Background
This 86-nucleotide sequence from Kingdonia uniflora belongs to the Rfam family "Small nucleolar RNA snoR8a". The literature on the family includes a 2001 paper in RNA by Brown et al., "Multiple snoRNA gene clusters from Arabidopsis". Rfam classes the family as a C/D-box small nucleolar RNA. Lineage of the source: Eukaryota > Streptophytina > Euphyllophyta > Ranunculales > Kingdonia. Pairs were carried over by alignment from the consensus structure, which was predicted with WAR.

RNA sequence: AUGGAUGCGAUGAUUGUAAAAAAUUCCUCGUACUGAAAUGCUAAUGGCAUGACAGACACUUAUACACCCAUAGAAUAUGAGCAUUC
Numbered sequence: 001a002u003g004g005a006u007g008c009g010a011u012g013a014u015u016g017u018a019a020a021a022a023a024u025u026c027c028u029c030g031u032a033c034u035g036a037a038a039u040g041c042u043a044a045u046g047g048c049a050u051g052a053c054a055g056a057c058a059c060u061u062a063u064a065c066a067c068c069c070a071u072a073g074a075a076u077a078u079g080a081g082c083a084u085u086c
Stems, first nucleotide, its partner, number of pairs: 003086002006083002